[Rfam]
RNA sequence: GAGAAAUGACGAGCUUUACAUUGGUCCGUGUUUCUGAAUCACCGUGACCGACAAAUCUUACCAAUUUCUGAUCUC
Numbered sequence: 001g002a003g004a005a006a007u008g009a010c011g012a013g014c015u016u017u018a019c020a021u022u023g024g025u026c027c028g029u030g031u032u033u034c035u036g037a038a039u040c041a042c043c044g045u046g047a048c049c050g051a052c053a054a055a056u057c058u059u060a061c062c063a064a065u066u067u068c069u070g071a072u073c074u075c
Stems, first nucleotide, its partner, number of pairs: 001075004
Source information:
The family of this 75-nucleotide RNA from Medicago truncatula is "Small nucleolar RNA SNORD18". Its family is annotated with nucleolus and RNA processing in the Gene Ontology. By type it is a C/D-box small nucleolar RNA. A search with the family's covariance model found it, with a score of 42 bits.